Shown here is a 344-nucleotide part of an RNA from Amblyospora californica, a member of the family "Microsporidia small subunit ribosomal RNA".
The literature on the family includes a 2001 paper in Science by Yusupov et al., "Crystal structure of the ribosome at 5.5 A resolution".
NCBI's taxonomy places the organism under Eukaryota, Opisthokonta, Microsporidia, Pansporoblastina, Amblyospora.
Rfam 15.1 lists 1,035 matches to the family in 436 species.
Rfam's curators put it in the seed alignment.
RNA sequence: CGGUUAAAACGUGCGUAGUCUGGUCUAUGGCUUGGGUGUAAUCCGUGCUUUUCUAGUACGGGUUAUUUCAGGUACCUAGACCUUGAGACGGGGAUGUGGUAAUGUUAUUUGGUAGCGAGAGGUGAAAUUCGAUGACCUACCAAGGAGCAACAGAGGCGAAAGCGAUUACCAGGAACCGAUCUGACGAUCAAGCGCGUGAGCAGGAUUAUCGAAGAGGAUUAGAGACCCACGUAUUCCUUGCAGUAAACGAUGCCUACAGUGUGGUGCUUAAUUGCAUUGCGCGAACGAAAGCUAGUGUAUGGGCUCCGGGGAUAGUACGGACGCAAGUUUAAACUUGAAGAAAU
Numbered sequence: 001c002g003g004u005u006a007a008a009a010c011g012u013g014c015g016u017a018g019u020c021u022g023g024u025c026u027a028u029g030g031c032u033u034g035g036g037u038g039u040a041a042u043c044c045g046u047g048c049u050u051u052u053c054u055a056g057u058a059c060g061g062g063u064u065a066u067u068u069c070a071g072g073u074a075c076c077u078a079g080a081c082c083u084u085g086a087g088a089c090g091g092g093g094a095u096g097u098g099g100u101a102a103u104g105u106u107a108u109u110u111g112g113u114a115g116c117g118a119g120a121g122g123u124g125a126a127a128u129u130c131g132a133u134g135a136c137c138u139a140c141c142a143a144g145g146a147g148c149a150a151c152a153g154a155g156g157c158g159a160a161a162g163c164g165a166u167u168a169c170c171a172g173g174a175a176c177c178g179a180u181c182u183g184a185c186g187a188u189c190a191a192g193c194g195c196g197u198g199a200g201c202a203g204g205a206u207u208a209u210c211g212a213a214g215a216g217g218a219u220u221a222g223a224g225a226c227c228c229a230c231g232u233a234u235u236c237c238u239u240g241c242a243g244u245a246a247a248c249g250a251u252g253c254c255u256a257c258a259g260u261g262u263g264g265u266g267c268u269u270a271a272u273u274g275c276a277u278u279g280c281g282c283g284a285a286c287g288a289a290a291g292c293u294a295g296u297g298u299a300u301g302g303g304c305u306c307c308g309g310g311g312a313u314a315g316u317a318c319g320g321a322c323g324c325a326a327g328u329u330u331a332a333a334c335u336u337g338a339a340g341a342a343a344u
Base pairs, nucleotide, nucleotide: 001308002307003306011195012194013193014192018188019187020186086182087181088180089178090177091176097171098170099169100168101167102166103165104148105147108144109143110142111141112140113139114138115137119130120129121128156163157162200241201240202239203238204237214230216228217227252304253303254302255297256296257295259282260281261280262279263278264277265276266275267274286291310336311335319330320329321328322327